[Rfam]
RNA sequence: UGUGUGUAGUGAUGAGAACAUGGAUCAAGCGUCAGGCAUGGCGCCCGAAAGGCAUGAGGAAAGUUUCCAUGCUGCCUUCCUUCUGACCACACG
Numbered sequence: 001u002g003u004g005u006g007u008a009g010u011g012a013u014g015a016g017a018a019c020a021u022g023g024a025u026c027a028a029g030c031g032u033c034a035g036g037c038a039u040g041g042c043g044c045c046c047g048a049a050a051g052g053c054a055u056g057a058g059g060a061a062a063g064u065u066u067c068c069a070u071g072c073u074g075c076c077u078u079c080c081u082u083c084u085g086a087c088c089a090c091a092c093g
Base pairs, nucleotide, nucleotide: 001093002092003091004090005089
Dot-bracket structure: (((((...................................................................................)))))
Small nucleolar RNA U83B: a 93-nucleotide sequence from Hemibagrus wyckioides.
Lineage of the source: Eukaryota > Chordata > Craniata > Teleostomi > Hemibagrus.
Rfam 15.1 lists 966 matches to the family in 652 species.
About the family: U83B belongs to the C/D family of snoRNAs.
The family's RNA type in Rfam is C/D-box small nucleolar RNA.